Description: The record is a 73-nucleotide RNA sequence from Paramecium primaurelia, which matches "tRNA" in Rfam. It scores 73 bits against the family's covariance model. Pairs were carried over by alignment from the consensus structure, which is taken from published work. Lineage of the source: Eukaryota > Sar > Oligohymenophorea > Parameciidae > Paramecium.

RNA sequence: GCCCAUGUGGCGCAAUUGGUAGCGCGACAGCCUUCUAAGCUGUAGGCUGCAGGUUCAAUCCCUGCCAUGGGUG
Numbered sequence: 001g002c003c004c005a006u007g008u009g010g011c012g013c014a015a016u017u018g019g020u021a022g023c024g025c026g027a028c029a030g031c032c033u034u035c036u037a038a039g040c041u042g043u044a045g046g047c048u049g050c051a052g053g054u055u056c057a058a059u060c061c062c063u064g065c066c067a068u069g070g071g072u073g
Base pairs, nucleotide, nucleotide: 001072002071003070004069005068006067007066010025011024012023013022027043028042029041030040031039049065050064051063052062053061